[Rfam]
The family of this 94-nucleotide sequence from Brevibacillus sp. SYP-B805 is "c-di-GMP-I riboswitch aptamer". The organism belongs to Brevibacillus, within Bacteria. From the family's description: GEMM was predicted in a large-scale screen for bacterial structured RNA regulatory elements.
RNA sequence: GAGCGACAAAGGCAAACCUGGCGAAAGUCAGCGGCGCAAAACUAAAGGGGCUACCGUACCUUCAUCAAGGUACCACUGCCAGCCAGUUACCGUA
Numbered sequence: 001g002a003g004c005g006a007c008a009a010a011g012g013c014a015a016a017c018c019u020g021g022c023g024a025a026a027g028u029c030a031g032c033g034g035c036g037c038a039a040a041a042c043u044a045a046a047g048g049g050g051c052u053a054c055c056g057u058a059c060c061u062u063c064a065u066c067a068a069g070g071u072a073c074c075a076c077u078g079c080c081a082g083c084c085a086g087u088u089a090c091c092g093u094a
Base pairs, nucleotide, nucleotide: 012037013036018031019030020029021028022027040088041087042086043085047084048083049080050079051078056073057072058071059070060069061068062067